[Rfam]
RNA sequence: CAGAAUACGUGAUGAGUUUCCCCAACUUUGACACUGUCACUGAUUGUUUGAUGAUAAGAUCUGAUACUCUG
Numbered sequence: 001c002a003g004a005a006u007a008c009g010u011g012a013u014g015a016g017u018u019u020c021c022c023c024a025a026c027u028u029u030g031a032c033a034c035u036g037u038c039a040c041u042g043a044u045u046g047u048u049u050g051a052u053g054a055u056a057a058g059a060u061c062u063g064a065u066a067c068u069c070u071g
Stems, first nucleotide, its partner, number of pairs: 001071004006066002
The family of this 71-nucleotide RNA from Chrysochloris asiatica is "Small nucleolar RNA SNORD81". Lineage of the source: Eukaryota > Vertebrata > Euteleostomi > Dipnotetrapodomorpha > Chrysochloris. Gene Ontology terms of the family: RNA processing and nucleolus. The family's consensus secondary structure was predicted with PFOLD.